[Rfam]
RNA sequence: UGUUUUUUUUGCCCAGGCGGAGCUCGACCGCCGACUCAAGUAUUGAAUGACUUUGUGGACAAGCAUCGCGAUGCCCACGGGGUCGAGCCAAUCUGCAAGGUCUGGCAGAUUGCCCCC
Dot-bracket structure: ...............(((((.......)))))..............................................((((......((.(((((.(....).))))).)))))).
RNA: ALIL pseudoknot